RNA sequence: CCUUCGCUCAACAGAUCGCUGUCGAAGCUCACAUACAGAGAUGUCUCGCUCGAGACGUCUCUUCCUUCUAGCUUUGGGAGAAAGUCCCCGGACACCUUCUUUUUUCCUUUACGGAAAGAGAACUUGCGGAAACGCGCCGCCAUAAAAGCACUGCGGCUGACUUCCGCGCCUUGGCCGCCUCUGGCAAUGACCAUGCCCGGUCUGCCGCUACAUUCGCCCGCCUCGAAGCUGAUGCGUCACCUCUGUCUCUAUAGCCGCCGCUCGAACCAUCAUGGGAUGAAGAUACGAGUCCGAGUCGGGUGCGGUCCCGGGGAUGGAUGCGUGCGCUUGGCAGACGGCGGGUGGAUGGUAGACUGACGCCUGUGGCUCUUGCUGUGGUGGUUGCGGGUGCAGAAGAUUUUUGUCGAGGUCGAUAGUUAUGCGAUUGCUGGGCUUCACGGCCCAGUUACUCGAUGGGGCUCAUUCUUGAGGCGAAG
Numbered sequence: 001c002c003u004u005c006g007c008u009c010a011a012c013a014g015a016u017c018g019c020u021g022u023c024g025a026a027g028c029u030c031a032c033a034u035a036c037a038g039a040g041a042u043g044u045c046u047c048g049c050u051c052g053a054g055a056c057g058u059c060u061c062u063u064c065c066u067u068c069u070a071g072c073u074u075u076g077g078g079a080g081a082a083a084g085u086c087c088c089c090g091g092a093c094a095c096c097u098u099c100u101u102u103u104u105u106c107c108u109u110u111a112c113g114g115a116a117a118g119a120g121a122a123c124u125u126g127c128g129g130a131a132a133c134g135c136g137c138c139g140c141c142a143u144a145a146a147a148g149c150a151c152u153g154c155g156g157c158u159g160a161c162u163u164c165c166g167c168g169c170c171u172u173g174g175c176c177g178c179c180u181c182u183g184g185c186a187a188u189g190a191c192c193a194u195g196c197c198c199g200g201u202c203u204g205c206c207g208c209u210a211c212a213u214u215c216g217c218c219c220g221c222c223u224c225g226a227a228g229c230u231g232a233u234g235c236g237u238c239a240c241c242u243c244u245g246u247c248u249c250u251a252u253a254g255c256c257g258c259c260g261c262u263c264g265a266a267c268c269a270u271c272a273u274g275g276g277a278u279g280a281a282g283a284u285a286c287g288a289g290u291c292c293g294a295g296u297c298g299g300g301u302g303c304g305g306u307c308c309c310g311g312g313g314a315u316g317g318a319u320g321c322g323u324g325c326g327c328u329u330g331g332c333a334g335a336c337g338g339c340g341g342g343u344g345g346a347u348g349g350u351a352g353a354c355u356g357a358c359g360c361c362u363g364u365g366g367c368u369c370u371u372g373c374u375g376u377g378g379u380g381g382u383u384g385c386g387g388g389u390g391c392a393g394a395a396g397a398u399u400u401u402u403g404u405c406g407a408g409g410u411c412g413a414u415a416g417u418u419a420u421g422c423g424a425u426u427g428c429u430g431g432g433c434u435u436c437a438c439g440g441c442c443c444a445g446u447u448a449c450u451c452g453a454u455g456g457g458g459c460u461c462a463u464u465c466u467u468g469a470g471g472c473g474a475a476g
Stems, first nucleotide, its partner, number of pairs: 002476006008469004014426006022078001023076006038061010083460002086458004239398001241396001246394003250390002255387004267380001363373004428445006